[Rfam]
A member of the RNA family "Bacterial small subunit ribosomal RNA" from Fibrobacter succinogenes, 600 nucleotides of a longer RNA. Rfam 15.1 lists 42,628 matches to the family in 10,626 species. The source organism's lineage runs through Bacteria, Pseudomonadati, Fibrobacteria, Fibrobacter succinogenes and Fibrobacter succinogenes subsp. succinogenes. A reference for the family is Yusupov et al. (2001), "Crystal structure of the ribosome at 5.5 A resolution", Science. Its Rfam clan is "SSU clan".
RNA sequence: UGACGGGGGCCCGCACAAGCGGUGGAGCAUGUGGUUUAAUUCGAAGCAACGCGCAGAACCUUACCAGGGUUUGACAUGGGAACGCCGCGGCGAGAGAUCGCCGUUUUGCAGCAAUGCAACGUUCCGCACAGGUGCUGCAUGGCUGUCGUCAGCUCGUGUCGUGAGAUGUUGGGUUAAGUCCCGCAACGAGCGCAACCCACGUUUCCAGUUGCCACCCGCAAGGGGGCCCUCUGGAGAGACUGCCGGGGACAACCCGGAGGAAGGUGUGGAUGACGUCAAGUCCUCAUGGCCCUUACAUCCUGGGCUACACACGUGCUACAAUGGUCGGUACAAUGGGUCGCAACGCCGCGAGGCGGAGCCAAUCCUCAAAGCCGUCCUCAGUUCGGAUCGGAGUCUGCAACUCGACUCCGUGAAGCUGGAAUCGCUAGUAAUCGUGGGUCAGCACACCACGGUGAAUACGUUCCCGGGCCUUGUACACACCGCCCGUCAAGCCAUGGGAGAAGGGAGUGCUCUAAGUCGUGCAAGCGCCUAAAGCAAGACCUUUGACUGGGGCUAAGUCGUAACAAGGUAGCCGUACCGGAAGGUGCGGCUGGAUUACCU
Numbered sequence: 001u002g003a004c005g006g007g008g009g010c011c012c013g014c015a016c017a018a019g020c021g022g023u024g025g026a027g028c029a030u031g032u033g034g035u036u037u038a039a040u041u042c043g044a045a046g047c048a049a050c051g052c053g054c055a056g057a058a059c060c061u062u063a064c065c066a067g068g069g070u071u072u073g074a075c076a077u078g079g080g081a082a083c084g085c086c087g088c089g090g091c092g093a094g095a096g097a098u099c100g101c102c103g104u105u106u107u108g109c110a111g112c113a114a115u116g117c118a119a120c121g122u123u124c125c126g127c128a129c130a131g132g133u134g135c136u137g138c139a140u141g142g143c144u145g146u147c148g149u150c151a152g153c154u155c156g157u158g159u160c161g162u163g164a165g166a167u168g169u170u171g172g173g174u175u176a177a178g179u180c181c182c183g184c185a186a187c188g189a190g191c192g193c194a195a196c197c198c199a200c201g202u203u204u205c206c207a208g209u210u211g212c213c214a215c216c217c218g219c220a221a222g223g224g225g226g227c228c229c230u231c232u233g234g235a236g237a238g239a240c241u242g243c244c245g246g247g248g249a250c251a252a253c254c255c256g257g258a259g260g261a262a263g264g265u266g267u268g269g270a271u272g273a274c275g276u277c278a279a280g281u282c283c284u285c286a287u288g289g290c291c292c293u294u295a296c297a298u299c300c301u302g303g304g305c306u307a308c309a310c311a312c313g314u315g316c317u318a319c320a321a322u323g324g325u326c327g328g329u330a331c332a333a334u335g336g337g338u339c340g341c342a343a344c345g346c347c348g349c350g351a352g353g354c355g356g357a358g359c360c361a362a363u364c365c366u367c368a369a370a371g372c373c374g375u376c377c378u379c380a381g382u383u384c385g386g387a388u389c390g391g392a393g394u395c396u397g398c399a400a401c402u403c404g405a406c407u408c409c410g411u412g413a414a415g416c417u418g419g420a421a422u423c424g425c426u427a428g429u430a431a432u433c434g435u436g437g438g439u440c441a442g443c444a445c446a447c448c449a450c451g452g453u454g455a456a457u458a459c460g461u462u463c464c465c466g467g468g469c470c471u472u473g474u475a476c477a478c479a480c481c482g483c484c485c486g487u488c489a490a491g492c493c494a495u496g497g498g499a500g501a502a503g504g505g506a507g508u509g510c511u512c513u514a515a516g517u518c519g520u521g522c523a524a525g526c527g528c529c530u531a532a533a534g535c536a537a538g539a540c541c542u543u544u545g546a547c548u549g550g551g552g553c554u555a556a557g558u559c560g561u562a563a564c565a566a567g568g569u570a571g572c573c574g575u576a577c578c579g580g581a582a583g584g585u586g587c588g589g590c591u592g593g594a595u596u597a598c599c600u
Base pairs, nucleotide, nucleotide: 001477002476003474004473005472007471008470009469010468011467012466013465015461016460019425020424021423022422023421024319026317027316028315029314030313031312032311033310034308035307040055042053043052064303065302066301067300068299069298070297077128078127079125080124081123082122083121087104088103089102090101091100092099093098107118108117109116110115131292132291134290135289136288137287140286141285142281143280144279145277147275148274152191153190154189155188156187157186158167159166160165170183171182172181173180197269198268199267200266202237203236204235205234206233207232208231212226213225216224217223240260241259243257244256245255246254247253323377324376326374327373328372329371335366336365337364340359341358345354346353347352384415389410390409391408392407393406394405395404431453432452433451434450435449436448437447480567482564485560486559490554491553492552493551495549496548497547500544501543502542503541504540508536509535510534511533516529518527519526520525569592570591571590572589573588574587575586576585577584578583